[Rfam]
The family of this 84-nucleotide sequence from Allobosea caraganae is "DUF3800-VII RNA". By type it is a small RNA.
RNA sequence: GGCAGCCAUGCGCCGGAACAACCCAGAGCAUUCGAAAGAUUGCAGGCGAGAGAUCGCAAUCAUGGGCCGGGGGGCUGCCGCUCU
Numbered sequence: 001g002g003c004a005g006c007c008a009u010g011c012g013c014c015g016g017a018a019c020a021a022c023c024c025a026g027a028g029c030a031u032u033c034g035a036a037a038g039a040u041u042g043c044a045g046g047c048g049a050g051a052g053a054u055c056g057c058a059a060u061c062a063u064g065g066g067c068c069g070g071g072g073g074g075c076u077g078c079c080g081c082u083c084u
Stems, first nucleotide, its partner, number of pairs: 001079007011071001013070004022066004028043003032039002046057004
Dot-bracket structure: (((((((...(.((((.....((((..(((.((....)).)))..((((....)))).....))))))))).))))))).....

The match comes from Rfam's covariance-model search (43 bits).